[Rfam]
RNA sequence: ACGGGAGAGGUUCUAGCACAACCCUCUAUAAAAAACUAAGGACAG
Number, nucleotide and partner (000 for none) at each position: 001a000002c000003g000004g000005g000006a027007g026008a025009g024010g023011u000012u000013c000014u000015a000016g037017c000018a000019c000020a000021a000022c000023c010024c009025u008026c007027u006028a000029u000030a000031a000032a000033a000034a000035a000036c000037u016038a000039a000040g000041g000042a000043c000044a000045g000

Overview:
The family of this 45-nucleotide sequence from Bacillus sp. SJS is "PreQ1 (pre queuosine) riboswitch aptamer". The organism belongs to Bacillus, within Bacteria. From the family's description: This family is a bacterial riboswitch that binds to the metabolite preQ1, an intermediate in the biosynthesis of the modified nucleoside queuosine from GTP. One example of this riboswitch is located in the leader of the Bacillus subtilis ykvJKLM (queCDEF) operon which encodes four genes necessary for queuosine production. PreQ1 binding to the riboswitch aptamer is thought to induce premature transcription termination within the leader to down-regulate expression of these genes.